[Rfam]
6S / SsrS RNA: a 188-nucleotide RNA from Neobacillus piezotolerans. The source organism's lineage runs through Bacteria, Bacillati, Bacillota, Caryophanales and Neobacillus. The literature on the family includes a 2000 paper in Cell by Wassarman and Storz, "6S RNA regulates E. coli RNA polymerase activity". E. coli 6S RNA was the first non coding RNA to be sequenced, but its function was unknown until recently. Pairs were carried over by alignment from the consensus structure, which is taken from published work.
RNA sequence: AGAGUCCUGAAGUGUACGUUGCAUCGCCUAAAUGUUUUGACCGAACAUUUUUUCUUCGGGAGUCUGAGUUUCACGGCUGCGCACAUGCCCCAUACCCGGGGACUUGCAAUAGCAGUGAACAGGACACCCACCUGCUUUAUGCGGGCCAAAACGAAGGAAAUUGGCAACGGCACAAGUUUGGGACUCUU
Numbered sequence: 001a002g003a004g005u006c007c008u009g010a011a012g013u014g015u016a017c018g019u020u021g022c023a024u025c026g027c028c029u030a031a032a033u034g035u036u037u038u039g040a041c042c043g044a045a046c047a048u049u050u051u052u053u054c055u056u057c058g059g060g061a062g063u064c065u066g067a068g069u070u071u072c073a074c075g076g077c078u079g080c081g082c083a084c085a086u087g088c089c090c091c092a093u094a095c096c097c098g099g100g101g102a103c104u105u106g107c108a109a110u111a112g113c114a115g116u117g118a119a120c121a122g123g124a125c126a127c128c129c130a131c132c133u134g135c136u137u138u139a140u141g142c143g144g145g146c147c148a149a150a151a152c153g154a155a156g157g158a159a160a161u162u163g164g165c166a167a168c169g170g171c172a173c174a175a176g177u178u179u180g181g182g183a184c185u186c187u188u
Stems, first nucleotide, its partner, number of pairs: 002186010012173004017169003033153003037149003041145002058129003062125004069119001071118004076113002083105001088101004